[Rfam]
RNA sequence: AUUUCAUGAUCGCUGAGUUCCUGCAACCCGCAGGAAACGGGGGAACCAUCGAGUGCGUCUUCGCAAGAAGCGCGCUCAGGGGUGAAUCCGGAAGCAGGCCGCGGAAACACGCAGCUUCACAAGCUUCUGGUAGGGCGACUCUCACGCCCGAAUCCGACAGCUAACCUCGUAAGCGUCCCGAGAGAGGCAAC
Numbered sequence: 001a002u003u004u005c006a007u008g009a010u011c012g013c014u015g016a017g018u019u020c021c022u023g024c025a026a027c028c029c030g031c032a033g034g035a036a037a038c039g040g041g042g043g044a045a046c047c048a049u050c051g052a053g054u055g056c057g058u059c060u061u062c063g064c065a066a067g068a069a070g071c072g073c074g075c076u077c078a079g080g081g082g083u084g085a086a087u088c089c090g091g092a093a094g095c096a097g098g099c100c101g102c103g104g105a106a107a108c109a110c111g112c113a114g115c116u117u118c119a120c121a122a123g124c125u126u127c128u129g130g131u132a133g134g135g136c137g138a139c140u141c142u143c144a145c146g147c148c149c150g151a152a153u154c155c156g157a158c159a160g161c162u163a164a165c166c167u168c169g170u171a172a173g174c175g176u177c178c179c180g181a182g183a184g185a186g187g188c189a190a191c
Stems, first nucleotide, its partner, number of pairs: 011175004018036007037170006047079001080155003088130008133149004
c-di-AMP riboswitch aptamer (ydaO/yuaA leader): a 191-nucleotide RNA from Paenibacillus swuensis.
A search with the family's covariance model found it, with a score of 86 bits.